[Rfam]
RNA sequence: GUAAAUCAUCAGGAGCUUCCAGAAAAUACCGGAACACCAACCGAGAGACCAAAAUCCACGGUGGUAAAGUAUGAGGGCAUCCGCCAAAAUAUAAGGUUAUA
Numbered sequence: 001g002u003a004a005a006u007c008a009u010c011a012g013g014a015g016c017u018u019c020c021a022g023a024a025a026a027u028a029c030c031g032g033a034a035c036a037c038c039a040a041c042c043g044a045g046a047g048a049c050c051a052a053a054a055u056c057c058a059c060g061g062u063g064g065u066a067a068a069g070u071a072u073g074a075g076g077g078c079a080u081c082c083g084c085c086a087a088a089a090u091a092u093a094a095g096g097u098u099a100u101a
Stems, first nucleotide, its partner, number of pairs: 006074004015035001017034004036065003041061003045056002048097003076085003
Dot-bracket structure: .....((((.....(.((((..........)))))(((..(((.((.[[[....))..))).))).....)))).(((....))).........]]]....
Annotation: SAM-I/IV (S-adenosyl methionine) riboswitch aptamer: a 101-nucleotide RNA from Cloacibacterium normanense. The family's consensus secondary structure is taken from published work. Gene Ontology terms of the family: S-adenosylmethionine metabolic process and regulation of gene expression. It scores 53 bits against the family's covariance model. Lineage of the source: Bacteria > Bacteroidota > Flavobacteriia > Weeksellaceae > Cloacibacterium.